[Rfam]
RNA sequence: CUCUGCCGGAGGGAGAGUGGCCUCGGGUGAGGUUCGUGUGUAUUGUAUCGGGGUGUUUCGUGGAAGGCGCGUGCGGGCCGAGUGUGUGAGUGGACGUGUGAAUGUGUGAAUGCGCGCAUGGUGCGUGCAAGGCGAAUGCGUGCGCCACCCCCGCGCCCCUCCCCCGGCCUACACCUUGAUCUUAUUUGAUCGCGUCGUGACUCCAGCCCCGCCGGGCCGACCCGAAAUGAAAAGCUCCCCUCCUGCGAAGCCCUUUCCUUGGGGCGCUGUGCAGCGAGGCCCCUUGGGCGGUGGCAACGCCGCGGUCCCCGAGGUCCCGGAGCCGGUCCAACGGGGCCCGGCGCUCAGAAGUGAUGAAUUGAUCAGAUAGACGAGGCCGGGCUUGUCCCGGGCCACUGAUUAUCGAGGCGAUUCUGAUCUGA
Numbered sequence: 001c002u003c004u005g006c007c008g009g010a011g012g013g014a015g016a017g018u019g020g021c022c023u024c025g026g027g028u029g030a031g032g033u034u035c036g037u038g039u040g041u042a043u044u045g046u047a048u049c050g051g052g053g054u055g056u057u058u059c060g061u062g063g064a065a066g067g068c069g070c071g072u073g074c075g076g077g078c079c080g081a082g083u084g085u086g087u088g089a090g091u092g093g094a095c096g097u098g099u100g101a102a103u104g105u106g107u108g109a110a111u112g113c114g115c116g117c118a119u120g121g122u123g124c125g126u127g128c129a130a131g132g133c134g135a136a137u138g139c140g141u142g143c144g145c146c147a148c149c150c151c152c153g154c155g156c157c158c159c160u161c162c163c164c165c166g167g168c169c170u171a172c173a174c175c176u177u178g179a180u181c182u183u184a185u186u187u188g189a190u191c192g193c194g195u196c197g198u199g200a201c202u203c204c205a206g207c208c209c210c211g212c213c214g215g216g217c218c219g220a221c222c223c224g225a226a227a228u229g230a231a232a233a234g235c236u237c238c239c240c241u242c243c244u245g246c247g248a249a250g251c252c253c254u255u256u257c258c259u260u261g262g263g264g265c266g267c268u269g270u271g272c273a274g275c276g277a278g279g280c281c282c283c284u285u286g287g288g289c290g291g292u293g294g295c296a297a298c299g300c301c302g303c304g305g306u307c308c309c310c311g312a313g314g315u316c317c318c319g320g321a322g323c324c325g326g327u328c329c330a331a332c333g334g335g336g337c338c339c340g341g342c343g344c345u346c347a348g349a350a351g352u353g354a355u356g357a358a359u360u361g362a363u364c365a366g367a368u369a370g371a372c373g374a375g376g377c378c379g380g381g382c383u384u385g386u387c388c389c390g391g392g393c394c395a396c397u398g399a400u401u402a403u404c405g406a407g408g409c410g411a412u413u414c415u416g417a418u419c420u421g422a
Base pairs, nucleotide, nucleotide: 052157053156054155055154056153057073059071060070061069062068092107094105095104096103097102111144112143113140114139115138116137119134120133185233186232187231190225191224192223195220196219197218199217202216203215204214206212207211257314258313259312260311261310262309263308264307266306267305268304271303272302274300275299276298279295280294281293282291283290322342323341324340325339326338327336328335329334346421347420348419349418356414357413358412359411360410361409375394376393377392378391380389381388

The family of this 422-nucleotide sequence from Camelus dromedarius is "Small Cajal body-specific RNA 2". Pairs were carried over by alignment from the consensus structure, which is taken from published work. Gene Ontology terms of the family: nucleolus and RNA processing. The match comes from Rfam's covariance-model search (430 bits). Rfam 15.1 lists 612 matches to the family in 498 species. The organism belongs to Camelus, within Eukaryota. By type it is a small Cajal body RNA.